[Rfam]
RNA sequence: AUUUUAUAUUAAGCGCCAGGACUAUUUUCCGUUCGAAAAUGGAAAAUAGUUGACGAGGUGGAGGUUAUCGAAAUUUUCGGCGGAUGCCUUCCGACUGCACAUCUCAGUCGUUUAAGCUCAUUCUGAAAACAAUAAGGUGACUUAUUGCACAAAGGAAUCGGGCAAGAUGUCUA
Number, nucleotide and partner (000 for none) at each position: 001a000002u000003u000004u000005u000006a000007u000008a000009u000010u000011a000012a000013g000014c000015g000016c000017c000018a000019g000020g051021a050022c049023u048024a047025u046026u045027u044028u000029c042030c041031g040032u000033u000034c000035g000036a000037a000038a000039a000040u031041g030042g029043a000044a027045a026046a025047u024048a023049g022050u021051u020052g000053a000054c000055g000056a000057g000058g000059u000060g091061g090062a089063g088064g087065u000066u000067a000068u080069c079070g078071a077072a000073a000074u000075u000076u000077u071078c070079g069080g068081c000082g000083g000084a000085u000086g000087c064088c063089u062090u061091c060092c110093g109094a108095c107096u106097g105098c000099a000100c000101a000102u000103c000104u000105c097106a096107g095108u094109c093110g092111u000112u000113u000114a000115a000116g163117c162118u161119c160120a158121u157122u156123c000124u000125g000126a000127a000128a000129a000130c147131a146132a145133u144134a143135a142136g141137g000138u000139g000140a000141c136142u135143u134144a133145u132146u131147g130148c000149a000150c000151a000152a000153a000154g000155g000156a122157a121158u120159c000160g119161g118162g117163c116164a000165a000166g000167a000168u000169g000170u000171c000172u000173a000
Rfam assigns this 173-nucleotide RNA sequence from Oceanobacillus halophilus to the family "glmS glucosamine-6-phosphate activated ribozyme aptamer".
Rfam classes the family as a riboswitch.
On this family, see Winkler et al., Nature 2004: "Control of gene expression by a natural metabolite-responsive ribozyme".
Its family is annotated with catalytic activity and regulation of gene expression in the Gene Ontology.
The match comes from Rfam's covariance-model search (112 bits).